[Rfam]
RNA sequence: ACCGUCCUUAUCUCGGGGUUGCGCGGCCGCCCGAUGAACGCGUGGUGAGGGCAGCCCUGCUAACGCCUCAAGCAACACAUCGGCGCCCGCUUUGCGCGCGGCGCAAUUUUUGGAACC
Numbered sequence: 001a002c003c004g005u006c007c008u009u010a011u012c013u014c015g016g017g018g019u020u021g022c023g024c025g026g027c028c029g030c031c032c033g034a035u036g037a038a039c040g041c042g043u044g045g046u047g048a049g050g051g052c053a054g055c056c057c058u059g060c061u062a063a064c065g066c067c068u069c070a071a072g073c074a075a076c077a078c079a080u081c082g083g084c085g086c087c088c089g090c091u092u093u094g095c096g097c098g099c100g101g102c103g104c105a106a107u108u109u110u111u112g113g114a115a116c117c
Base pairs, nucleotide, nucleotide: 006018007017008016009015021060022059023058026055027054029052030051031050032049038046039045083104084103085102086101087100088098089095090094